[Rfam]
A member of the RNA family "SAM riboswitch aptamer (S box leader)" from Desulfosarcina widdelii, 99 nucleotides long. The family's consensus secondary structure is taken from published work. NCBI's taxonomy places the organism under Bacteria, Pseudomonadati, Thermodesulfobacteriota, Desulfosarcinaceae, Desulfosarcina.

RNA sequence: GAUUCAUGUGGAGUGGCGUGAGGGAACUGGCCCGUUGACCGCCCGGCAACCUGACCACAAGGUGCCAAAUCCAGCCCAUCCCUUUGGGAAACAUGAGGU
Numbered sequence: 001g002a003u004u005c006a007u008g009u010g011g012a013g014u015g016g017c018g019u020g021a022g023g024g025a026a027c028u029g030g031c032c033c034g035u036u037g038a039c040c041g042c043c044c045g046g047c048a049a050c051c052u053g054a055c056c057a058c059a060a061g062g063u064g065c066c067a068a069a070u071c072c073a074g075c076c077c078a079u080c081c082c083u084u085u086g087g088g089a090a091a092c093a094u095g096a097g098g099u
Stems, first nucleotide, its partner, number of pairs: 001099001003097006013044001015043004022033003027074004045066004050062002053058001070091001075088004